[Rfam]
Shown here is a 115-nucleotide RNA sequence from Rosa chinensis, a member of the family "MIR397 microRNA precursor family". The literature on the family includes a 2009 paper in BMC Genomics by Mica et al., "High throughput approaches reveal splicing of primary microRNA transcripts and tissue specific expression of mature microRNAs in Vitis vinifera". A search with the family's covariance model found it, with a score of 78 bits.

RNA sequence: UGAAGAAACGUCAUUGAGUGCAGCGUUGAUGAAGUCCUUAAUUUCCUCUUCCGAUGAUCUUCAUGGAGGCGAAGUUAAGGAGAUUUCAUCAACGCUGCACCCAAUUAUGUUUCUA
Numbered sequence: 001u002g003a004a005g006a007a008a009c010g011u012c013a014u015u016g017a018g019u020g021c022a023g024c025g026u027u028g029a030u031g032a033a034g035u036c037c038u039u040a041a042u043u044u045c046c047u048c049u050u051c052c053g054a055u056g057a058u059c060u061u062c063a064u065g066g067a068g069g070c071g072a073a074g075u076u077a078a079g080g081a082g083a084u085u086u087c088a089u090c091a092a093c094g095c096u097g098c099a100c101c102c103a104a105u106u107a108u109g110u111u112u113c114u115a
Stems, first nucleotide, its partner, number of pairs: 006112006013105004018100011030088003